[Rfam]
Nucleotides: 102
Stems, first nucleotide, its partner, number of pairs: 021085003025081001029049006058078007
Number, partner (000 for none) and nucleotide at each position: 001000g002000a003000u004000a005000u006000c007000g008000a009000g010000g011000u012000a013000a014000u015000a016000a017000a018000a019000a020000a021085c022084c023083a024000u025081a026000u027000a028000a029049u030048u031047c032046u033045a034044g035000u036000a037000a038000u039000a040000c041000g042000g043000u044034c045033u046032a047031g048030a049029a050000g051000u052000u053000u054000c055000u056000a057000c058078a059077a060076g061075u062074u063073a064072c065000c066000c067000g068000u069000a070000a071000a072064g073063u074062a075061a076060c077059u078058u079000a080000c081025u082000u083023u084022g085021g086000c087000a088000a089000a090000u091000g092000a093000a094000u095000c096000u097000u098000a099000u100000u101000a102000u